[Rfam]
RNA sequence: UUUUUUCUUACAACCAUGAUCUGUGUCCAGCACUCCCGUUGACGGAGUACCAGUCUGACUGGCAUCUCUGUGUUUCGGUUGAGAGCUGGGCAGAUCGACGACCUUGGAGCCAUUCAUCUUCCAACAUGUAUGGCACCCUUACGGUGUCCUGUCGACAGAUCUCAGAUUAAGUGUUUGCGCCGGGUGUCCCUUAGGUCUUGAGCUCCCGCCUUGGUGAGCUCGGCUUGAGGCCCUGGAUGCGGACGGCGUCAUAUUCCACCCCUCUUUACCGAUUGGCCGUUGGCCCGUGAGGUUAGGGAUAAACCAUGACCAGCCAACAUUU
Numbered sequence: 001u002u003u004u005u006u007c008u009u010a011c012a013a014c015c016a017u018g019a020u021c022u023g024u025g026u027c028c029a030g031c032a033c034u035c036c037c038g039u040u041g042a043c044g045g046a047g048u049a050c051c052a053g054u055c056u057g058a059c060u061g062g063c064a065u066c067u068c069u070g071u072g073u074u075u076c077g078g079u080u081g082a083g084a085g086c087u088g089g090g091c092a093g094a095u096c097g098a099c100g101a102c103c104u105u106g107g108a109g110c111c112a113u114u115c116a117u118c119u120u121c122c123a124a125c126a127u128g129u130a131u132g133g134c135a136c137c138c139u140u141a142c143g144g145u146g147u148c149c150u151g152u153c154g155a156c157a158g159a160u161c162u163c164a165g166a167u168u169a170a171g172u173g174u175u176u177g178c179g180c181c182g183g184g185u186g187u188c189c190c191u192u193a194g195g196u197c198u199u200g201a202g203c204u205c206c207c208g209c210c211u212u213g214g215u216g217a218g219c220u221c222g223g224c225u226u227g228a229g230g231c232c233c234u235g236g237a238u239g240c241g242g243a244c245g246g247c248g249u250c251a252u253a254u255u256c257c258a259c260c261c262c263u264c265u266u267u268a269c270c271g272a273u274u275g276g277c278c279g280u281u282g283g284c285c286c287g288u289g290a291g292g293u294u295a296g297g298g299a300u301a302a303a304c305c306a307u308g309a310c311c312a313g314c315c316a317a318c319a320u321u322u
Stems, first nucleotide, its partner, number of pairs: 018161007025091006033083003036078003042071001044068002047065002050062005099154004106137002109134005173240002180236005194225004200221006206214002245315003248310005262298004268293003275285004

Shown here is a 322-nucleotide RNA from Penicillium brasilianum, a member of the family "A. fumigatus sRNA Afu_309". By type it is a small RNA. NCBI's taxonomy places the organism under Eukaryota, saccharomyceta, Pezizomycotina, Eurotiales, Penicillium. A search with the family's covariance model found it, with a score of 216 bits.